[Rfam]
RNA sequence: CCGGGUUCGAUGCAGACACACCCGGUCCUGAAAGACGAUCCGUCCAAGUGCUGC
Dot-bracket structure: ((((((.....[[[[....))))))........((((...))))......]]]]
Numbered sequence: 001c002c003g004g005g006u007u008c009g010a011u012g013c014a015g016a017c018a019c020a021c022c023c024g025g026u027c028c029u030g031a032a033a034g035a036c037g038a039u040c041c042g043u044c045c046a047a048g049u050g051c052u053g054c
Stems, first nucleotide, its partner, number of pairs: 001025006012054004034044004
Notes
Shown here is a 54-nucleotide RNA, a member of the family "chrB-b RNA". It is annotated as a cis-regulatory element.